[Rfam]
RNA sequence: GCUUUAGAAAAUAAAUAUUGAAUAUAAUAGAACUAAUAUCUUAGCUUACUAUUGCUAAGAAAGUUAGUCUGAAAAGAAUAAAUCUUCGCCAUCACCAGGGGACUUUUUAGUCCACAGUUAGUCGUUUUACCCCGCCAUCUGGAUGCCUUCACAUUCAGAUGGUCGUAA
Numbered sequence: 001g002c003u004u005u006a007g008a009a010a011a012u013a014a015a016u017a018u019u020g021a022a023u024a025u026a027a028u029a030g031a032a033c034u035a036a037u038a039u040c041u042u043a044g045c046u047u048a049c050u051a052u053u054g055c056u057a058a059g060a061a062a063g064u065u066a067g068u069c070u071g072a073a074a075a076g077a078a079u080a081a082a083u084c085u086u087c088g089c090c091a092u093c094a095c096c097a098g099g100g101g102a103c104u105u106u107u108u109a110g111u112c113c114a115c116a117g118u119u120a121g122u123c124g125u126u127u128u129a130c131c132c133c134g135c136c137a138u139c140u141g142g143a144u145g146c147c148u149u150c151a152c153a154u155u156c157a158g159a160u161g162g163u164c165g166u167a168a
Stems, first nucleotide, its partner, number of pairs: 001125002005120003011037002014034001018031002021028001039060007063115002067112001069110005076087003089100002134163012

This 168-nucleotide RNA sequence from Yersinia aldovae belongs to the Rfam family "Yersinia YenS sRNA". On this family, see Tsai and Winans, Mol Microbiol 2011: "The quorum-hindered transcription factor YenR of Yersinia enterocolitica inhibits pheromone production and promotes motility via a small non-coding RNA". Rfam's curators put it in the seed alignment. The family's RNA type in Rfam is small RNA.